[Rfam]
RNA sequence: UGUCUCCUCCACCUCCUCUAAUGGUGGAUUCAGCCCCUAGCUUCUUAGCUAGGGGCUUUUUUU
Numbered sequence: 001u002g003u004c005u006c007c008u009c010c011a012c013c014u015c016c017u018c019u020a021a022u023g024g025u026g027g028a029u030u031c032a033g034c035c036c037c038u039a040g041c042u043u044c045u046u047a048g049c050u051a052g053g054g055g056c057u058u059u060u061u062u063u
Stems, first nucleotide, its partner, number of pairs: 008028006033056008
RNA: Betaproteobacteria toxic small RNA